pemK RNA: a 60-nucleotide RNA sequence. Pairs were carried over by alignment from the consensus structure, which is taken from published work. The family's RNA type in Rfam is cis-regulatory element.
RNA sequence: AUCAUGAUACUCCUGCAAUGCAGUUGUGUGAGAUACCACACAAAGAUGAAAUUUCUGUGA
Numbered sequence: 001a002u003c004a005u006g007a008u009a010c011u012c013c014u015g016c017a018a019u020g021c022a023g024u025u026g027u028g029u030g031a032g033a034u035a036c037c038a039c040a041c042a043a044a045g046a047u048g049a050a051a052u053u054u055c056u057g058u059g060a
Stems, first nucleotide, its partner, number of pairs: 012057001013023004024043003028039003044056003